[Rfam]
RNA sequence: UCUUAUCUCUAUUAGGUGAGGUUCCUGUUCGGAGAUACGCUACUGCCCAAAAAUGUCGAGAGACACCAAUGGGUCAGCAGGAAAGAUCGGAAUGAAGGUCUUUUCUAAUGUAGCUGGUUUCGCGCAAACCUAUGCCGUUCAGUGCCAAAGCUCAAUGAGGGGGAUAAGC
Numbered sequence: 001u002c003u004u005a006u007c008u009c010u011a012u013u014a015g016g017u018g019a020g021g022u023u024c025c026u027g028u029u030c031g032g033a034g035a036u037a038c039g040c041u042a043c044u045g046c047c048c049a050a051a052a053a054u055g056u057c058g059a060g061a062g063a064c065a066c067c068a069a070u071g072g073g074u075c076a077g078c079a080g081g082a083a084a085g086a087u088c089g090g091a092a093u094g095a096a097g098g099u100c101u102u103u104u105c106u107a108a109u110g111u112a113g114c115u116g117g118u119u120u121c122g123c124g125c126a127a128a129c130c131u132a133u134g135c136c137g138u139u140c141a142g143u144g145c146c147a148a149a150g151c152u153c154a155a156u157g158a159g160g161g162g163g164a165u166a167a168g169c
Base pairs, nucleotide, nucleotide: 005165006164007163008162009161010160011156012155013096015152016151017150020146021145022144025142026141027140030137031136032135039114040113041112042111043110045074046073047072048071049070054065055064056063057062080105081104082103083102086099087098088097116130117129118128
RNA: M-box riboswitch aptamer (ykoK leader)
Organism: Thermoactinomyces daqus